[Rfam]
RNA: MIR2912 microRNA precursor family
RNA sequence: UUUAGAACUCAAGAUAUGGGCUGAACAUGGAACAGUGUUUGGGCUGCAGGAUAGAUUCGGACUUCUCCGUUGUUGCUAAGAUUUGGACUUCCAAACAACAAAAUUGGGUCUUGGACUUCCCAUGAAUGUUUUAGGCCUAUGUCCUAGCUUUCUAGC
Numbered sequence: 001u002u003u004a005g006a007a008c009u010c011a012a013g014a015u016a017u018g019g020g021c022u023g024a025a026c027a028u029g030g031a032a033c034a035g036u037g038u039u040u041g042g043g044c045u046g047c048a049g050g051a052u053a054g055a056u057u058c059g060g061a062c063u064u065c066u067c068c069g070u071u072g073u074u075g076c077u078a079a080g081a082u083u084u085g086g087a088c089u090u091c092c093a094a095a096c097a098a099c100a101a102a103a104u105u106g107g108g109u110c111u112u113g114g115a116c117u118u119c120c121c122a123u124g125a126a127u128g129u130u131u132u133a134g135g136c137c138u139a140u141g142u143c144c145u146a147g148c149u150u151u152c153u154a155g156c
Stems, first nucleotide, its partner, number of pairs: 002155006008147002011145001013143008021134005027129003035123003041119003045115001048112005054105004060099001063097001069091001072088003